[Rfam]
RNA sequence: AACAAAGAUAGAGGUGCGUCUUUUAUCAGUACCCGUCGGGAUCGCAUCAGGGCGAAGGGAACGGCGGGAAAAGGAAAAAACGCCGAAGAGCCGCUGUCCCUGCUGAUAACGGUUCUGGGCCUGCCGAAAAUAUCGUCAGGACUGUCGCCGGUCGGCGGAGCGCUGUCAAAUGU
Numbered sequence: 001a002a003c004a005a006a007g008a009u010a011g012a013g014g015u016g017c018g019u020c021u022u023u024u025a026u027c028a029g030u031a032c033c034c035g036u037c038g039g040g041a042u043c044g045c046a047u048c049a050g051g052g053c054g055a056a057g058g059g060a061a062c063g064g065c066g067g068g069a070a071a072a073g074g075a076a077a078a079a080a081c082g083c084c085g086a087a088g089a090g091c092c093g094c095u096g097u098c099c100c101u102g103c104u105g106a107u108a109a110c111g112g113u114u115c116u117g118g119g120c121c122u123g124c125c126g127a128a129a130a131u132a133u134c135g136u137c138a139g140g141a142c143u144g145u146c147g148c149c150g151g152u153c154g155g156c157g158g159a160g161c162g163c164u165g166u167c168a169a170a171u172g173u
Base pairs, nucleotide, nucleotide: 007167008166009165010164011163016083017082018081019080021078022077023076024075032068033067034066035065036064037063038062087116088115089114090113091112092111093110095108096107097106098105117143118142120140121139122138123137125135126134127133145158146157147156148155149154
Lysine riboswitch aptamer: a 173-nucleotide RNA from a Eubacteriaceae bacterium. It scores 103 bits against the family's covariance model. For this family Rfam cites "Regulation of lysine biosynthesis and transport genes in bacteria: yet another RNA riboswitch?" (Rodionov et al., Nucleic Acids Res, 2003). Lineage of the source: Bacteria > Bacillota > Clostridia > Eubacteriales > Eubacteriaceae.